[Rfam]
RNA sequence: CUUCACCGAACCCAGCCACAACGGCCGGUCCUCAUCCCGCCCCUGGCCGUACGUCGCCAACAGCGCCUGCGCCUC
Numbered sequence: 001c002u003u004c005a006c007c008g009a010a011c012c013c014a015g016c017c018a019c020a021a022c023g024g025c026c027g028g029u030c031c032u033c034a035u036c037c038c039g040c041c042c043c044u045g046g047c048c049g050u051a052c053g054u055c056g057c058c059a060a061c062a063g064c065g066c067c068u069g070c071g072c073c074u075c
Stems, first nucleotide, its partner, number of pairs: 015025003031071001033069001038065002044059002047056001049054001

ASpks TB sRNA: a 75-nucleotide RNA sequence from Streptomyces sp. Rer75. Pairs were carried over by alignment from the consensus structure, which is taken from published work. The match comes from Rfam's covariance-model search (83 bits). NCBI's taxonomy places the organism under Bacteria, Actinomycetota, Actinomycetes, Streptomycetaceae, Streptomyces. The family has 77 seed sequences and 9,052 matches in Rfam 15.1. By type it is an antisense RNA.